The family of this 67-nucleotide RNA sequence from Coregonus sp. 'balchen' is "Selenocysteine insertion sequence 1". By type it is a cis-regulatory element. It scores 35 bits against the family's covariance model. NCBI's taxonomy places the organism under Eukaryota, Opisthokonta, Metazoa, Bilateria, Coregonus. Its family is annotated with selenocysteine incorporation in the Gene Ontology.
RNA sequence: UCCUCUGCUAUGAAGUCUGCGGGUCAAACCUUACUGAGGUGCCUGUAGGCAGAUGCUGUGCUGAGGA
Numbered sequence: 001u002c003c004u005c006u007g008c009u010a011u012g013a014a015g016u017c018u019g020c021g022g023g024u025c026a027a028a029c030c031u032u033a034c035u036g037a038g039g040u041g042c043c044u045g046u047a048g049g050c051a052g053a054u055g056c057u058g059u060g061c062u063g064a065g066g067a
Base pairs, nucleotide, nucleotide: 001067002066003065004064005063015050016049017048018047019046020045021044022043023042024041030039031038032037